[Rfam]
RNA: pan motif
RNA sequence: AGGGUAGUAUCGACAGAACUUCACCUGAUACUCUUUUUAUAAUUUAUCGUUUACGAACUGCCUUGAUCUAAAAAAGACUAGGACAGAGGG
Dot-bracket structure: ((((.(((.((....))))).).)))...............................((((((.(.(((.....)))).))).)))....
Numbered sequence: 001a002g003g004g005u006a007g008u009a010u011c012g013a014c015a016g017a018a019c020u021u022c023a024c025c026u027g028a029u030a031c032u033c034u035u036u037u038u039a040u041a042a043u044u045u046a047u048c049g050u051u052u053a054c055g056a057a058c059u060g061c062c063u064u065g066a067u068c069u070a071a072a073a074a075a076g077a078c079u080a081g082g083a084c085a086g087a088g089g090g
Stems, first nucleotide, its partner, number of pairs: 001026003004022001006020003010017002058086003061082003065078001067077003